This 105-nucleotide RNA from Miscanthus lutarioriparius belongs to the Rfam family "MIR5565 microRNA precursor family". The family's consensus secondary structure was predicted with RNAalifold. The match comes from Rfam's covariance-model search (83 bits).
[Rfam]
RNA sequence: ACCCUCGUAUCUACCUCAAUCCACAUGCGUUGAAGUAGAUUGGGGUGGAACUUAGACUUACACCUCAAUCCACUUCAAUACAUGUGGAUUGAGAUGAAUACGAGA
Numbered sequence: 001a002c003c004c005u006c007g008u009a010u011c012u013a014c015c016u017c018a019a020u021c022c023a024c025a026u027g028c029g030u031u032g033a034a035g036u037a038g039a040u041u042g043g044g045g046u047g048g049a050a051c052u053u054a055g056a057c058u059u060a061c062a063c064c065u066c067a068a069u070c071c072a073c074u075u076c077a078a079u080a081c082a083u084g085u086g087g088a089u090u091g092a093g094a095u096g097a098a099u100a101c102g103a104g105a
Stems, first nucleotide, its partner, number of pairs: 004104007012096002016092012029079004035073002038070006045063003